RNA sequence: CCGGGCUGAGGUAGGAGGUUGUAUAGUUGAGGAGGACACCCAAGGAGAUCACUAUACGGCCUCCUAGCUUUCCCCA
Numbered sequence: 001c002c003g004g005g006c007u008g009a010g011g012u013a014g015g016a017g018g019u020u021g022u023a024u025a026g027u028u029g030a031g032g033a034g035g036a037c038a039c040c041c042a043a044g045g046a047g048a049u050c051a052c053u054a055u056a057c058g059g060c061c062u063c064c065u066a067g068c069u070u071u072c073c074c075c076a
Stems, first nucleotide, its partner, number of pairs: 003074003008070003012066016029041001031040002
Background:
A member of the RNA family "let-7 microRNA precursor family", 76 nucleotides long. Rfam 15.1 lists 8,694 matches to the family in 797 species. It is one of the family's seed sequences. Rfam describes the family as follows. This family represents the microRNAs (miRNA) let-7 and mir-98. let-7 was identified from a study of developmental timing in C. elegans, and was later shown to be part of a much larger class of non-coding RNAs termed miRNAs.